RNA: RpsF leader
RNA sequence: AUAUGUUUUUUUUGCAUUCCUUGCUUCCAUUGGAUGUGUGUUAUCUAUAAUUAGUAGGCUAAAUAAUCCAUAAGGAGCAAUUCUAUG
Numbered sequence: 001a002u003a004u005g006u007u008u009u010u011u012u013u014g015c016a017u018u019c020c021u022u023g024c025u026u027c028c029a030u031u032g033g034a035u036g037u038g039u040g041u042u043a044u045c046u047a048u049a050a051u052u053a054g055u056a057g058g059c060u061a062a063a064u065a066a067u068c069c070a071u072a073a074g075g076a077g078c079a080a081u082u083c084u085a086u087g
Stems, first nucleotide, its partner, number of pairs: 017077006023059004028054001031047003